[Rfam]
RNA sequence: UCUAGGUCGCACAACUGGCGGAUAAGGGGAUUACCCCAAGGGAGUGCGAAUCCUGUUGAGUUUGCCGACCGCCUGGGCGCCACCG
Numbered sequence: 001u002c003u004a005g006g007u008c009g010c011a012c013a014a015c016u017g018g019c020g021g022a023u024a025a026g027g028g029g030a031u032u033a034c035c036c037c038a039a040g041g042g043a044g045u046g047c048g049a050a051u052c053c054u055g056u057u058g059a060g061u062u063u064g065c066c067g068a069c070c071g072c073c074u075g076g077g078c079g080c081c082a083c084c085g
Base pairs, nucleotide, nucleotide: 005051007049008048009047010046011045012044015041016040017073018072019071020070021069026037027036028035029034063079064078065077066076
Shown here is an 85-nucleotide RNA from Paenalicyclobacillus mengziensis, a member of the family "ZMP/ZTP riboswitch aptamer (pfl RNA motif)". It scores 56 bits against the family's covariance model. The source organism's lineage runs through Bacteria, Bacillati, Bacilli, Alicyclobacillaceae and Paenalicyclobacillus.